About this RNA
Glycine riboswitch aptamer: a 68-nucleotide RNA sequence from Tritonibacter multivorans. About the family: This family represents the bacterial glycine riboswitch.

RNA sequence: CACUCUGGAGAGAGCCCGGGUCACCGGGACGCCGAAGGGAUAACGAUCUCAGGCGCAUGGACAGAGGG
Numbered sequence: 001c002a003c004u005c006u007g008g009a010g011a012g013a014g015c016c017c018g019g020g021u022c023a024c025c026g027g028g029a030c031g032c033c034g035a036a037g038g039g040a041u042a043a044c045g046a047u048c049u050c051a052g053g054c055g056c057a058u059g060g061a062c063a064g065a066g067g068g
Stems, first nucleotide, its partner, number of pairs: 001068001003066005015028003031054003034050002038048002